[Rfam]
RNA: mir-2788 microRNA precursor family
Organism: Danaus chrysippus
RNA sequence: AUGUAUCGUCGCUGUAUUACUGGGGUUUCCUAGCGGCAUGUGCCUACCCUCAUCAAAUGCAAUGCCCUUGGAAAUCCCAAACGUGCUCGCGACCCUA
Numbered sequence: 001a002u003g004u005a006u007c008g009u010c011g012c013u014g015u016a017u018u019a020c021u022g023g024g025g026u027u028u029c030c031u032a033g034c035g036g037c038a039u040g041u042g043c044c045u046a047c048c049c050u051c052a053u054c055a056a057a058u059g060c061a062a063u064g065c066c067c068u069u070g071g072a073a074a075u076c077c078c079a080a081a082c083g084u085g086c087u088c089g090c091g092a093c094c095c096u097a
Stems, first nucleotide, its partner, number of pairs: 008093005014086003021079009032068002035066005041061003